[Rfam]
RNA sequence: UUUGCAGGAUAAGUGUGUAUUGGUUAAAUGCCUUUUGAUGUGCAUUUCUUACUGAAAGUGUUUCCUGCUAUAUUAAUUUGUGGAAAGUGGGCAGUUGGGUUGAGUUUCAUAGUCUCUUUUGCCAACAAUCAUUUUCCUCUCAUUG
Numbered sequence: 001u002u003u004g005c006a007g008g009a010u011a012a013g014u015g016u017g018u019a020u021u022g023g024u025u026a027a028a029u030g031c032c033u034u035u036u037g038a039u040g041u042g043c044a045u046u047u048c049u050u051a052c053u054g055a056a057a058g059u060g061u062u063u064c065c066u067g068c069u070a071u072a073u074u075a076a077u078u079u080g081u082g083g084a085a086a087g088u089g090g091g092c093a094g095u096u097g098g099g100u101u102g103a104g105u106u107u108c109a110u111a112g113u114c115u116c117u118u119u120u121g122c123c124a125a126c127a128a129u130c131a132u133u134u135u136c137c138u139c140u141c142a143u144u145g
Stems, first nucleotide, its partner, number of pairs: 004068006015045006080139001082137009094126004
RNA: small nucleolar RNA snoR135
Organism: Triticum aestivum